A member of the RNA family "mir-190 microRNA precursor family" from Gambusia affinis, 82 nucleotides long. The family has 76 seed sequences and 1,667 matches in Rfam 15.1.

RNA sequence: GGGGCUGUGUGAUAUGUUUGAUAUUCGGUUGUUCUUGUGCUUCAUCGUAUCAACUAAAUAUCAGACAUAUUCCUACAGAGUC
Numbered sequence: 001g002g003g004g005c006u007g008u009g010u011g012a013u014a015u016g017u018u019u020g021a022u023a024u025u026c027g028g029u030u031g032u033u034c035u036u037g038u039g040c041u042u043c044a045u046c047g048u049a050u051c052a053a054c055u056a057a058a059u060a061u062c063a064g065a066c067a068u069a070u071u072c073c074u075a076c077a078g079a080g081u082c
Stems, first nucleotide, its partner, number of pairs: 005078005011071015027055005

Pairs were carried over by alignment from the consensus structure, which was predicted with RNAalifold.